[Rfam]
Rfam assigns this 309-nucleotide sequence from Cucurbita maxima to the family "Plant signal recognition particle RNA".
Lineage of the source: Eukaryota > Embryophyta > Mesangiospermae > rosids > Cucurbita.
RNA sequence: GCCGAGCUUGGUAAUGCGAGCUUAUGACUCAAAUGAGAGCAUUAAAGUAGAUGGAGGGUUGGCUCAACCCUUUGGGUAGGGUCUCCAUGGAGUGAAUAUUUGGCUUGUCCAUUCCAAGGUGGGAGUUGGGCCGUUGUCCAUGGGUGAAGGCUCGUGGAUAGCCUGCCCUUGGAGACGGAGGAAACUGCGUGAGGCUGGCUUCACAGAACAGCGUAACCUUCCUCUCCUGUAGGCGGAAGGAUAGCAGGGCCGGUUCUCCAUACCCCGAUAAAUACUUGGUGGGUAGUCCUCAACCCAACAAUCACUUUU
Numbered sequence: 001g002c003c004g005a006g007c008u009u010g011g012u013a014a015u016g017c018g019a020g021c022u023u024a025u026g027a028c029u030c031a032a033a034u035g036a037g038a039g040c041a042u043u044a045a046a047g048u049a050g051a052u053g054g055a056g057g058g059u060u061g062g063c064u065c066a067a068c069c070c071u072u073u074g075g076g077u078a079g080g081g082u083c084u085c086c087a088u089g090g091a092g093u094g095a096a097u098a099u100u101u102g103g104c105u106u107g108u109c110c111a112u113u114c115c116a117a118g119g120u121g122g123g124a125g126u127u128g129g130g131c132c133g134u135u136g137u138c139c140a141u142g143g144g145u146g147a148a149g150g151c152u153c154g155u156g157g158a159u160a161g162c163c164u165g166c167c168c169u170u171g172g173a174g175a176c177g178g179a180g181g182a183a184a185c186u187g188c189g190u191g192a193g194g195c196u197g198g199c200u201u202c203a204c205a206g207a208a209c210a211g212c213g214u215a216a217c218c219u220u221c222c223u224c225u226c227c228u229g230u231a232g233g234c235g236g237a238a239g240g241a242u243a244g245c246a247g248g249g250c251c252g253g254u255u256c257u258c259c260a261u262a263c264c265c266c267g268a269u270a271a272a273u274a275c276u277u278g279g280u281g282g283g284u285a286g287u288c289c290u291c292a293a294c295c296c297a298a299c300a301a302u303c304a305c306u307u308u309u
Base pairs, nucleotide, nucleotide: 001040002039004023005022006021007020008019009018010017028037029036030035044308045307046306047305048304050302052300053299056296057295059293060292061291062289065286067284069282070281072279073278074277075276076275077274078273079266080265081264090258091257092256094255095254100253101252102251103250104249105247106246107245108244109240110239112238113237114236115235119230120229121228122227123226124225125224128168129167130166131165133163134161135160136159137158138157139156140155141154142153143152144151145150169174177222178221179220180219181218186215187214188213189212190211195206196205197204